[Rfam]
RNA sequence: GAGUCUAACGUGUGCAAGUCAGGGGCUCGCACGAAAGCCACCGUGGUGCAAUGAAGGUGAAGGCCGGCGGACUCGCCGACCGAGGUGGGAUCCUGAGGCCUCUCCAGUCCGCCGAGGGCACACCACUGGCCCGUCUCACCCGCCACGCCAGGGAGGUGGAGCACGAGCGCACGUGUUAGGACCCGAAAGAUGGUGGACUAUACCUGGGUAGGGCAAAGCCAGAGGAAACUCUGGUGGAGGUCCGUAGCGGUCCUGAUAUGCAAAUCAGUUCUCCGACUUGGGUAUAGAGGUGAAAGACUAAUCGAACCAUCUACUAGCUGGUU
Numbered sequence: 001g002a003g004u005c006u007a008a009c010g011u012g013u014g015c016a017a018g019u020c021a022g023g024g025g026c027u028c029g030c031a032c033g034a035a036a037g038c039c040a041c042c043g044u045g046g047u048g049c050a051a052u053g054a055a056g057g058u059g060a061a062g063g064c065c066g067g068c069g070g071a072c073u074c075g076c077c078g079a080c081c082g083a084g085g086u087g088g089g090a091u092c093c094u095g096a097g098g099c100c101u102c103u104c105c106a107g108u109c110c111g112c113c114g115a116g117g118g119c120a121c122a123c124c125a126c127u128g129g130c131c132c133g134u135c136u137c138a139c140c141c142g143c144c145a146c147g148c149c150a151g152g153g154a155g156g157u158g159g160a161g162c163a164c165g166a167g168c169g170c171a172c173g174u175g176u177u178a179g180g181a182c183c184c185g186a187a188a189g190a191u192g193g194u195g196g197a198c199u200a201u202a203c204c205u206g207g208g209u210a211g212g213g214c215a216a217a218g219c220c221a222g223a224g225g226a227a228a229c230u231c232u233g234g235u236g237g238a239g240g241u242c243c244g245u246a247g248c249g250g251u252c253c254u255g256a257u258a259u260g261c262a263a264a265u266c267a268g269u270u271c272u273c274c275g276a277c278u279u280g281g282g283u284a285u286a287g288a289g290g291u292g293a294a295a296g297a298c299u300a301a302u303c304g305a306a307c308c309a310u311c312u313a314c315u316a317g318c319u320g321g322u323u
Stems, first nucleotide, its partner, number of pairs: 005179005010172006018047003024039004051058002084127005092118002129162002131159006182321002185318001189311006198287011209275001211243004218235007247272001249270002252268001255266002289299003
Rfam assigns this 323-nucleotide part of an RNA from Cercocebus atys to the family "Eukaryotic large subunit ribosomal RNA". Gene Ontology terms of the family: ribosome and structural constituent of ribosome. On this family, see Yusupov et al., Science 2001: "Crystal structure of the ribosome at 5.5 A resolution". The family is grouped with related families in Rfam's "LSU clan". The family's consensus secondary structure is taken from published work.